[Rfam]
RNA sequence: CAGCUUAGCUAUGCUAAAUUACGACUGAGAAUUUAACUGGCCAGUUGUUAUAUGAGAGUUUUUUGAGAUCUCCAUCAACAUGUCUGCUUACUGAGCUUCUCACAUUU
Numbered sequence: 001c002a003g004c005u006u007a008g009c010u011a012u013g014c015u016a017a018a019u020u021a022c023g024a025c026u027g028a029g030a031a032u033u034u035a036a037c038u039g040g041c042c043a044g045u046u047g048u049u050a051u052a053u054g055a056g057a058g059u060u061u062u063u064u065g066a067g068a069u070c071u072c073c074a075u076c077a078a079c080a081u082g083u084c085u086g087c088u089u090a091c092u093g094a095g096c097u098u099c100u101c102a103c104a105u106u107u
Stems, first nucleotide, its partner, number of pairs: 027101005033095002039088003044083002047079003

Shown here is a 107-nucleotide RNA sequence from Hevea brasiliensis, a member of the family "Small nucleolar RNA snoR109". Gene Ontology terms of the family: nucleolus and RNA processing. It is annotated as an H/ACA-box small nucleolar RNA. The family has 6 seed sequences and 680 matches in Rfam 15.1.